[Rfam]
RNA sequence: CAACUGUAAUGGUUAAGUUGGUUUGAAGGCACUUGAUUUUCUCAGCGCGUCUAUUCCAUUUCCGUCCCCAGCGGCGCCCAGUGCGAAUCUUGCGGUGGCCGUCCACUCGCAUGGGUAACCCGCGAUGCUGCGCACGGCCCUGAGCAAUGAAGAUAACACUUGAGGGAGGCUCCACUCUGCAGAGAUAUCUUCACCGUCAGAUGGCGUGCUGGAUUACGAUCGCUGGGGUCUUGGGAUAGAGUGCUGAGAUGGAUAUGUCAACUCCUUAUUUUU
Numbered sequence: 001c002a003a004c005u006g007u008a009a010u011g012g013u014u015a016a017g018u019u020g021g022u023u024u025g026a027a028g029g030c031a032c033u034u035g036a037u038u039u040u041c042u043c044a045g046c047g048c049g050u051c052u053a054u055u056c057c058a059u060u061u062c063c064g065u066c067c068c069c070a071g072c073g074g075c076g077c078c079c080a081g082u083g084c085g086a087a088u089c090u091u092g093c094g095g096u097g098g099c100c101g102u103c104c105a106c107u108c109g110c111a112u113g114g115g116u117a118a119c120c121c122g123c124g125a126u127g128c129u130g131c132g133c134a135c136g137g138c139c140c141u142g143a144g145c146a147a148u149g150a151a152g153a154u155a156a157c158a159c160u161u162g163a164g165g166g167a168g169g170c171u172c173c174a175c176u177c178u179g180c181a182g183a184g185a186u187a188u189c190u191u192c193a194c195c196g197u198c199a200g201a202u203g204g205c206g207u208g209c210u211g212g213a214u215u216a217c218g219a220u221c222g223c224u225g226g227g228g229u230c231u232u233g234g235g236a237u238a239g240a241g242u243g244c245u246g247a248g249a250u251g252g253a254u255a256u257g258u259c260a261a262c263u264c265c266u267u268a269u270u271u272u273u
Base pairs, nucleotide, nucleotide: 002014003013004012020270021269022268025265031258032257034255035254037253038252039251041248042247043246045244046243047242048241050240051239052238053237054236055235056234057233058232066228067227068226069225070224071223072222073221075218076217078212079211080210081209082208083207084206085205087202088201089200090199092197093196094195095194097139099137100136101135102134104132106130107125108124109123110122113120114119140144148193149192150191151190152189153188154187159184160183161182166177167176168175
Shown here is a 273-nucleotide RNA from Schizothecium vesticola, a member of the family "Fungal signal recognition particle RNA".
The family's RNA type in Rfam is non-coding RNA gene.
The source organism's lineage runs through Eukaryota, Opisthokonta, Dikarya, Sordariomycetes and Schizothecium.
Pairs were carried over by alignment from the consensus structure, which is taken from published work.